[Rfam]
RNA sequence: UGGAUAUCCGGAGAAGUAGCUCUCUCCCGGCUCUGUCCGUGUGGCGCAGGGGAGCGUAGGCCUUCGGGCUCAUGACGUAUAUUCCCUUUCCACAACGUCGGAGAACAAGCUGGGCCUCGCGUCUGCAGCCUGCAUAUUCCUACUGCCUCUCCGAGCCCUCGGGCAGUGACGGAGGGGAUAAACCAUGCAGGAAACAGGC
Numbered sequence: 001u002g003g004a005u006a007u008c009c010g011g012a013g014a015a016g017u018a019g020c021u022c023u024c025u026c027c028c029g030g031c032u033c034u035g036u037c038c039g040u041g042u043g044g045c046g047c048a049g050g051g052g053a054g055c056g057u058a059g060g061c062c063u064u065c066g067g068g069c070u071c072a073u074g075a076c077g078u079a080u081a082u083u084c085c086c087u088u089u090c091c092a093c094a095a096c097g098u099c100g101g102a103g104a105a106c107a108a109g110c111u112g113g114g115c116c117u118c119g120c121g122u123c124u125g126c127a128g129c130c131u132g133c134a135u136a137u138u139c140c141u142a143c144u145g146c147c148u149c150u151c152c153g154a155g156c157c158c159u160c161g162g163g164c165a166g167u168g169a170c171g172g173a174g175g176g177g178a179u180a181a182a183c184c185a186u187g188c189a190g191g192a193a194a195c196a197g198g199c
Base pairs, nucleotide, nucleotide: 001095002038003037004036005035006034008030009029010028012023013022014021041093042092043091044090050086051085052084053083054080056078057077059073129191130190131189132188133187134186135185146177147176148175149174150173151172155164156163157162
Dot-bracket structure: ((((((.(((.(((......)))....)))...)))))..((((.....(((((.((.(.............)...)).)..))))...)))).).................................(((((((..........((((((...(((....))).......)))))).......)))))))........
Shown here is a 199-nucleotide RNA sequence from Tinamus guttatus, a member of the family "Small nucleolar RNA SNORA73 family". The match comes from Rfam's covariance-model search (164 bits). Rfam 15.1 lists 2,326 matches to the family in 660 species. The literature on the family includes a 1996 paper in RNA by Enright et al., "5'ETS rRNA processing facilitated by four small RNAs: U14, E3, U17, and U3". Rfam links the family to the GO terms nucleolus and RNA processing. The base pairs follow the family's consensus structure, which is taken from published work. U17 (SNORA73A and SNORA73B) also known as E1 belongs to the H/ACA class of small nucleolar RNAs (snoRNAs). Vertebrate U17 is intron-encoded and ranges in length from 200-230 nucleotides, longer than most snoRNAs.